[Rfam]
RNA sequence: ACGACACCGGUUCACGGCGGCACCCACCCGGGGUGCCGGCGACCCGGCGUC
Numbered sequence: 001a002c003g004a005c006a007c008c009g010g011u012u013c014a015c016g017g018c019g020g021c022a023c024c025c026a027c028c029c030g031g032g033g034u035g036c037c038g039g040c041g042a043c044c045c046g047g048c049g050u051c
Stems, first nucleotide, its partner, number of pairs: 003051003007047004015041002018038008
Annotation: This 51-nucleotide RNA sequence belongs to the Rfam family "L31-Actinobacteria ribosomal protein leader". Clan: Ribosomal Protein L31 Leader clan.